Rfam assigns this 149-nucleotide sequence from Carlito syrichta to the family "U12 minor spliceosomal RNA". A reference for the family is Otake et al. (2002), "The divergent U12-type spliceosome is required for pre-mRNA splicing and is essential for development in Drosophila", Mol Cell. The organism belongs to Carlito, within Eukaryota. It scores 99 bits against the family's covariance model.
RNA sequence: AUCCAUUUAUGAGUGAGAAGGAAAAUAAUGAUUUGGGAUGAUGCCCAAAUCCUCACUGCUAAUGUGAGAUGAAUUUUUGAGCAGGUAAAAGGUUGCCCCUAAAGUGACCUGCCUACUUUGCGGGAUGCCAGGGAGUUGUGAUCUGCCUG
Dot-bracket structure: .((.............))...........((((((((......))))))))(((((.......))))).............(((((...(((((((..((...(((.(((((.......))))).)))...))....))))))))))))